About this RNA: The record is a 192-nucleotide RNA sequence from Zhihengliuella halotolerans, which matches "c-di-AMP riboswitch aptamer (ydaO/yuaA leader)" in Rfam. The organism belongs to Zhihengliuella, within Bacteria. Its family is annotated with cyclic-di-AMP binding and regulation of gene expression in the Gene Ontology. The base pairs follow the family's consensus structure. A search with the family's covariance model found it, with a score of 61 bits. This family represents a conserved RNA structure found upstream of the ydaO and yuaA genes in Bacillus subtilis and related genes in other bacteria.

RNA sequence: GGAUCCGUCGAACCGAACACUUUCGGCAGAGGCGGGGGAACCAUACUUUCGCGGGAGCGAAGCGCACGGGUCAGACCUGUGCCGCGCGCCCUUGGGGUGAAGCCAGUCAAUCUCCACGUUGGGGGAAUGGCGGCCGGAUGCAUCUCACAUCCGAAUCCGACAGCUAACUUCGCAGGCUCUCUGAGAGGUAAA
Numbered sequence: 001g002g003a004u005c006c007g008u009c010g011a012a013c014c015g016a017a018c019a020c021u022u023u024c025g026g027c028a029g030a031g032g033c034g035g036g037g038g039a040a041c042c043a044u045a046c047u048u049u050c051g052c053g054g055g056a057g058c059g060a061a062g063c064g065c066a067c068g069g070g071u072c073a074g075a076c077c078u079g080u081g082c083c084g085c086g087c088g089c090c091c092u093u094g095g096g097g098u099g100a101a102g103c104c105a106g107u108c109a110a111u112c113u114c115c116a117c118g119u120u121g122g123g124g125g126a127a128u129g130g131c132g133g134c135c136g137g138a139u140g141c142a143u144c145u146c147a148c149a150u151c152c153g154a155a156u157c158c159g160a161c162a163g164c165u166a167a168c169u170u171c172g173c174a175g176g177c178u179c180u181c182u183g184a185g186a187g188g189u190a191a192a
Stems, first nucleotide, its partner, number of pairs: 011178001013176002018031001020029001032173006042094002095158003103133002136152004